PGK RNA: a 93-nucleotide RNA.
The sequence is in the family's curated seed alignment.
RNA sequence: UGCUAAUCUUAUUUAACUCUAGGCUUUACAAUUGUAAAUGAGAAAGAAAACUCAUUGAAAUAAGAUACUACGUUAAAUACUGAUAAUAUUUAA
Numbered sequence: 001u002g003c004u005a006a007u008c009u010u011a012u013u014u015a016a017c018u019c020u021a022g023g024c025u026u027u028a029c030a031a032u033u034g035u036a037a038a039u040g041a042g043a044a045a046g047a048a049a050a051c052u053c054a055u056u057g058a059a060a061u062a063a064g065a066u067a068c069u070a071c072g073u074u075a076a077a078u079a080c081u082g083a084u085a086a087u088a089u090u091u092a093a
Stems, first nucleotide, its partner, number of pairs: 008064006038055005073093007